[Rfam]
RNA: PhrS
Organism: Pistricoccus aurantiacus
RNA sequence: AACGAUUUAUAGUUCAUAGGGGAGCCACGAUCAUGUAUUACGACGAUGCAGUCAUUUUUGGUCUGGUAACGGUAGGUUUGAUGAUCGCUUUCAUGGGUGGUUUCGCCGGUUUCAUCAUUCGAGAUCACAAGCGCAAGGGCAAGCACUGAUACGCUGCCAGCGCAUGUACGAAGUCGUCAGGGGAGGGGGCCAUGCCCCCGGUUAGCCGACCUCAGGGUCGGCUUUUUUGUG
Numbered sequence: 001a002a003c004g005a006u007u008u009a010u011a012g013u014u015c016a017u018a019g020g021g022g023a024g025c026c027a028c029g030a031u032c033a034u035g036u037a038u039u040a041c042g043a044c045g046a047u048g049c050a051g052u053c054a055u056u057u058u059u060g061g062u063c064u065g066g067u068a069a070c071g072g073u074a075g076g077u078u079u080g081a082u083g084a085u086c087g088c089u090u091u092c093a094u095g096g097g098u099g100g101u102u103u104c105g106c107c108g109g110u111u112u113c114a115u116c117a118u119u120c121g122a123g124a125u126c127a128c129a130a131g132c133g134c135a136a137g138g139g140c141a142a143g144c145a146c147u148g149a150u151a152c153g154c155u156g157c158c159a160g161c162g163c164a165u166g167u168a169c170g171a172a173g174u175c176g177u178c179a180g181g182g183g184a185g186g187g188g189g190c191c192a193u194g195c196c197c198c199c200g201g202u203u204a205g206c207c208g209a210c211c212u213c214a215g216g217g218u219c220g221g222c223u224u225u226u227u228u229g230u231g
Stems, first nucleotide, its partner, number of pairs: 003099002006097002048058001050056001075086004205222007